Record summary
The family of this 169-nucleotide RNA sequence from Peromyscus maniculatus is "U1 spliceosomal RNA". It scores 80 bits against the family's covariance model. Rfam classes the family as a spliceosomal small nuclear RNA.
RNA sequence: ACACCUAGCUGGCCAGAGGAGAUACCAUGAUCACCAAGGUGGUUUUCUCAGGGCGAGCCUUAUCCAUUGAACUCCAGAUGUGCUGUGCUGACCCCUAUGAUGUCCCCAAAUGCAGAAAACUCAACUGCCUAAUUUGUGUCAGUGGGGACUGAGUUUGUGUUUUUUUCUG
Numbered sequence: 001a002c003a004c005c006u007a008g009c010u011g012g013c014c015a016g017a018g019g020a021g022a023u024a025c026c027a028u029g030a031u032c033a034c035c036a037a038g039g040u041g042g043u044u045u046u047c048u049c050a051g052g053g054c055g056a057g058c059c060u061u062a063u064c065c066a067u068u069g070a071a072c073u074c075c076a077g078a079u080g081u082g083c084u085g086u087g088c089u090g091a092c093c094c095c096u097a098u099g100a101u102g103u104c105c106c107c108a109a110a111u112g113c114a115g116a117a118a119a120c121u122c123a124a125c126u127g128c129c130u131a132a133u134u135u136g137u138g139u140c141a142g143u144g145g146g147g148a149c150u151g152a153g154u155u156u157g158u159g160u161u162u163u164u165u166u167c168u169g
Base pairs, nucleotide, nucleotide: 012128013127015126016125018048019047020046021045022044024043025042026041027040028039050096051095052094053093055092057089059087061085062084065080066079067078098123099122100121101119103116105115144168145167146166147165148164151160153158
The source organism's lineage runs through Eukaryota, Bilateria, Deuterostomia, Cricetidae and Peromyscus maniculatus.